[Rfam]
RNA sequence: UUGCUGCGGCUGGUCAAACGGAACCAAGUCAGGUGUCCCAGUGAGGUUUGGUCCCUUUCAACCAGCUACAGCAC
Numbered sequence: 001u002u003g004c005u006g007c008g009g010c011u012g013g014u015c016a017a018a019c020g021g022a023a024c025c026a027a028g029u030c031a032g033g034u035g036u037c038c039c040a041g042u043g044a045g046g047u048u049u050g051g052u053c054c055c056u057u058u059c060a061a062c063c064a065g066c067u068a069c070a071g072c073a074c
Stems, first nucleotide, its partner, number of pairs: 003072004008067007017058002020054003024051007

Background: mir-133 microRNA precursor family: a 74-nucleotide RNA from Scleropages formosus. mir-133 was first experimentally characterised in mouse and homologues have since been discovered in several other species. The mature sequence is excised from the 3' arm of the hairpin. The organism belongs to Scleropages, within Eukaryota. It scores 69 bits against the family's covariance model. Rfam links the family to the GO terms RISC complex and miRNA-mediated post-transcriptional gene silencing. For this family Rfam cites "Identification of tissue-specific microRNAs from mouse" (Lagos-Quintana et al., Curr Biol, 2002).